[Rfam]
Source information
This 84-nucleotide RNA from Pseudonocardia benzenivorans belongs to the Rfam family "ZMP/ZTP riboswitch aptamer (pfl RNA motif)". Its family is annotated with regulation of purine nucleotide biosynthetic process and one-carbon metabolic process in the Gene Ontology.
RNA sequence: GACGAGCAACGCGACUGGCGGCGGACGGGUGGGCAACCACCGGGGAGCUGAUCGACGCGCGGAUCGACCGCCUGGGUCCGCGAC
Numbered sequence: 001g002a003c004g005a006g007c008a009a010c011g012c013g014a015c016u017g018g019c020g021g022c023g024g025a026c027g028g029g030u031g032g033g034c035a036a037c038c039a040c041c042g043g044g045g046a047g048c049u050g051a052u053c054g055a056c057g058c059g060c061g062g063a064u065c066g067a068c069c070g071c072c073u074g075g076g077u078c079c080g081c082g083a084c
Stems, first nucleotide, its partner, number of pairs: 003054003007050002011048002015044002017072005029040004061079005